[Rfam]
RNA sequence: AUAAUCAAGCUGUUUUAUUCAGAGACAGCAGGCGCAGUAUGCGUAAUCGGGUUUUCCCAGCCUGCCGAGGAUAGAGCGACGAGAAUCAUUGCUUUGGUUUCUUACGCCCUUCCCGCGGUAUGUGGGAAGGGCUUUUUUGAUUGCGUC
Numbered sequence: 001a002u003a004a005u006c007a008a009g010c011u012g013u014u015u016u017a018u019u020c021a022g023a024g025a026c027a028g029c030a031g032g033c034g035c036a037g038u039a040u041g042c043g044u045a046a047u048c049g050g051g052u053u054u055u056c057c058c059a060g061c062c063u064g065c066c067g068a069g070g071a072u073a074g075a076g077c078g079a080c081g082a083g084a085a086u087c088a089u090u091g092c093u094u095u096g097g098u099u100u101c102u103u104a105c106g107c108c109c110u111u112c113c114c115g116c117g118g119u120a121u122g123u124g125g126g127a128a129g130g131g132c133u134u135u136u137u138u139g140a141u142u143g144c145g146u147c
Base pairs, nucleotide, nucleotide: 028065029064030063031062032061033060034042035041036040106132107131108130109129110128111127112126113125114124115123
Ribosomal protein L10 leader: a 147-nucleotide RNA sequence from Anaeromassilibacillus sp. An200.